RNA sequence: AAACGAGAUAGAGGUCGCAUUUUUUAUCAGUACGCUGCCGGAUGUGCAGGGCAGGUGAGGGCAGCGGAAAGGAAAAGAUGCCGAAAGGAUAUGGUUCCUGAUGCCAUAUUGCUUGGGCAUGGCGUGAACAACGACAUGACUGUCAUCGCAGGAUGGAGUGCUAUCUGAUAU
Numbered sequence: 001a002a003a004c005g006a007g008a009u010a011g012a013g014g015u016c017g018c019a020u021u022u023u024u025u026a027u028c029a030g031u032a033c034g035c036u037g038c039c040g041g042a043u044g045u046g047c048a049g050g051g052c053a054g055g056u057g058a059g060g061g062c063a064g065c066g067g068a069a070a071g072g073a074a075a076a077g078a079u080g081c082c083g084a085a086a087g088g089a090u091a092u093g094g095u096u097c098c099u100g101a102u103g104c105c106a107u108a109u110u111g112c113u114u115g116g117g118c119a120u121g122g123c124g125u126g127a128a129c130a131a132c133g134a135c136a137u138g139a140c141u142g143u144c145a146u147c148g149c150a151g152g153a154u155g156g157a158g159u160g161c162u163a164u165c166u167g168a169u170a171u
Stems, first nucleotide, its partner, number of pairs: 006166006017081009033066007085114003088110008115141002118138004123133003143156005
Background
Rfam assigns this 171-nucleotide RNA from Lachnospiraceae bacterium M18-1 to the family "Lysine riboswitch aptamer". NCBI's taxonomy places the organism under Bacteria, Bacillati, Bacillota, Clostridia, Lachnospiraceae. Riboswitches are metabolite binding domains within certain messenger RNAs that serve as precision sensors for their corresponding targets. Allosteric rearrangement of mRNA structure is mediated by ligand binding, and this results in modulation of gene expression. A reference for the family is Mandal et al. (2003), "Riboswitches Control Fundamental Biochemical Pathways in Bacillus subtilis and Other Bacteria", Cell. The match comes from Rfam's covariance-model search (115 bits).